The record is a 283-nucleotide part of an RNA from Dothidotthia symphoricarpi, which matches "Eukaryotic large subunit ribosomal RNA" in Rfam. The match comes from Rfam's covariance-model search (3102 bits). A reference for the family is Yusupov et al. (2001), "Crystal structure of the ribosome at 5.5 A resolution", Science. Clan: LSU clan. Rfam links the family to the GO terms ribosome and structural constituent of ribosome.

Nucleotides: 283
Stems, first nucleotide, its partner, number of pairs: 005139006012132006020044003025039005048055002063089005071080002091122002093119003096115003102109002142281002149271006158247011169235001171203004178195002181192004207232004212228001215226002249259002
Number, partner (000 for none) and nucleotide at each position: 001000g002000a003000g004000u005139c006138u007137a008136a009135c010134a011000u012132c013131u014130a015129u016128g017127u018000a019000a020044g021043u022042g023000u024000u025039u026038g027037g028036g029035u030000g031000u032000u033000a034000a035029g036028c037027c038026c039025a040000a041000a042022c043021g044020c045000g046000u047000a048055a049054u050000g051000a052000a053000a054049g055048u056000g057000a058000a059000c060000a061000g062000a063089g064088g065087u066086a067085g068000g069000a070000a071080c072079c073000c074000u075000u076000u077000g078000g079072g080071g081000c082000g083000u084000a085067c086066u087065a088064u089063u090000a091122a092121c093119u094118a095117a096115u097114c098113c099000u100000g101000a102109u103108g104000u105000c106000u107000u108103u109102g110000g111000a112000u113098g114097g115096a116000u117095u118094u119093g120000a121092g122091u123000a124000a125000g126000a127017g128016u129015a130014u131013a132012g133000c134010u135009g136008u137007u138006g139005g140000g141000a142281c143280c144000u145000a146000a147000a148000a149271g150270a151269u152268a153267g154266u155000g156000a157000a158247c159246u160245a161244u162243g163242c164241u165240u166239g167238a168237a169235u170000a171203g172202g173201g174200u175000a176000a177000a178195g179194c180000c181192a182191g183190a184189g185000g186000a187000a188000a189184c190183u191182c192181u193000a194179g195178u196000a197000g198000a199000g200174g201173c202172u203171u204000a205000c206000a207232g208231c209230g210229g211000u212228u213000c214000u215226g216225a217000c218000g219000u220000g221000c222000a223000a224000a225216u226215u227000a228212a229210u230209u231208g232207u233000u234000a235169a236000a237168u238167u239166u240165g241164g242163g243162c244161a245160u246159a247158g248000g249259g250258g251000c252000a253000a254000a255000a256000g257000a258250c259249u260000a261000a262000u263000u264000g265000a266154a267153c268152u269151a270150u271149c272000u273000a274000g275000u276000a277000g278000c279000u280143g281142g282000u283000u